A member of the RNA family "FMN riboswitch aptamer (RFN element)" from Clostridium sp. 'deep sea', 115 nucleotides long. Rfam 15.1 lists 6,230 matches to the family in 5,120 species. The base pairs follow the family's consensus structure, which is taken from published work. A search with the family's covariance model found it, with a score of 117 bits.
[Rfam]
RNA sequence: AUUUACCUUCGGGGCAGGGUGCAAUUCCCUACCGGCGGUUAAAGCCCGCGAGCAGUAAUGCUGAAUUGGUGAAAUUCCAAUGCCGACAGUAAAGUCUGGAUGAAAGAAGGCUUGU
Numbered sequence: 001a002u003u004u005a006c007c008u009u010c011g012g013g014g015c016a017g018g019g020u021g022c023a024a025u026u027c028c029c030u031a032c033c034g035g036c037g038g039u040u041a042a043a044g045c046c047c048g049c050g051a052g053c054a055g056u057a058a059u060g061c062u063g064a065a066u067u068g069g070u071g072a073a074a075u076u077c078c079a080a081u082g083c084c085g086a087c088a089g090u091a092a093a094g095u096c097u098g099g100a101u102g103a104a105a106g107a108a109g110g111c112u113u114g115u
Base pairs, nucleotide, nucleotide: 006110007109008108009107010106017029018028019027031095032094033085034084035049036048037047038046044083045082052061053060054059065081066080067079068078069077087098088097089096